[Rfam]
RNA sequence: AAUUCCUUUAAUUUGGUCCAGAGAGGCCAAAAAGGCAAAAGUAAACUUUAUAUAUUUUUUAUGUAUAUAAAUGCCCUUUUGUCCUUUGGAUAAGAGGGCUUUUUAU
Numbered sequence: 001a002a003u004u005c006c007u008u009u010a011a012u013u014u015g016g017u018c019c020a021g022a023g024a025g026g027c028c029a030a031a032a033a034g035g036c037a038a039a040a041g042u043a044a045a046c047u048u049u050a051u052a053u054a055u056u057u058u059u060u061a062u063g064u065a066u067a068u069a070a071a072u073g074c075c076c077u078u079u080u081g082u083c084c085u086u087u088g089g090a091u092a093a094g095a096g097g098g099c100u101u102u103u104u105a106u
Base pairs, nucleotide, nucleotide: 003037005035006034007033008032009031013030014029015028016027017026018025043066045064046063048061050059052057071101073099074098075097076096077095078094079093080092081091082090083089084088
RNA: PyrR binding site